[Rfam]
RNA sequence: CUUAUUUCUUAGUGCUUGUAGUCUGAAAAAACUCAGAAAUUUCCAGUGUUCUCAUCAGCUUCGUCUCAUCUUUUACCAUGAGGCUAGAGUUAAACAAGAACGCUACAUUA
Numbered sequence: 001c002u003u004a005u006u007u008c009u010u011a012g013u014g015c016u017u018g019u020a021g022u023c024u025g026a027a028a029a030a031a032c033u034c035a036g037a038a039a040u041u042u043c044c045a046g047u048g049u050u051c052u053c054a055u056c057a058g059c060u061u062c063g064u065c066u067c068a069u070c071u072u073u074u075a076c077c078a079u080g081a082g083g084c085u086a087g088a089g090u091u092a093a094a095c096a097a098g099a100a101c102g103c104u105a106c107a108u109u110a
Stems, first nucleotide, its partner, number of pairs: 045104007057091005064083004
Shown here is a 110-nucleotide RNA from Capsella rubella, a member of the family "Small nucleolar RNA snoR97". It scores 86 bits against the family's covariance model.